small Cajal body-specific RNA 18: a 78-nucleotide RNA from Physeter macrocephalus.
The base pairs follow the family's consensus structure, which was predicted with PFOLD.
By type it is a small Cajal body RNA.
The organism belongs to Physeter, within Eukaryota.
RNA sequence: UUGUUAGUGUUUAAAAAUGAAACAUCCGAGUUCUGGGAACCAGGUGAUAGAGUGUGUGCUGAGAACGGACUGAGACGG
Number, nucleotide and partner (000 for none) at each position: 001u000002u077003g076004u075005u074006a000007g000008u000009g000010u000011u000012u000013a000014a000015a000016a000017a000018u000019g000020a000021a000022a000023c000024a000025u000026c000027c000028g000029a000030g000031u000032u000033c043034u042035g041036g040037g000038a000039a000040c036041c035042a034043g033044g000045u000046g000047a000048u000049a000050g000051a000052g000053u000054g000055u000056g000057u000058g000059c000060u000061g000062a000063g000064a000065a000066c000067g000068g000069a000070c000071u000072g000073a000074g005075a004076c003077g002078g000